[Rfam]
RNA: Mammalian CPEB3 ribozyme
RNA sequence: GGUAGCAAGUUUGAGGCCCUAGUGGAAAUGACCCUGGCACAGCCCUGUCAGAUUCUAAUGAAUCUGCCAAUUCUGCU
Numbered sequence: 001g002g003u004a005g006c007a008a009g010u011u012u013g014a015g016g017c018c019c020u021a022g023u024g025g026a027a028a029u030g031a032c033c034c035u036g037g038c039a040c041a042g043c044c045c046u047g048u049c050a051g052a053u054u055c056u057a058a059u060g061a062a063u064c065u066g067c068c069a070a071u072u073c074u075g076c077u
Base pairs, nucleotide, nucleotide: 013045015044016043017042021077022076023075024074025073026072027071029039030038049066050065051064052063053062054061055060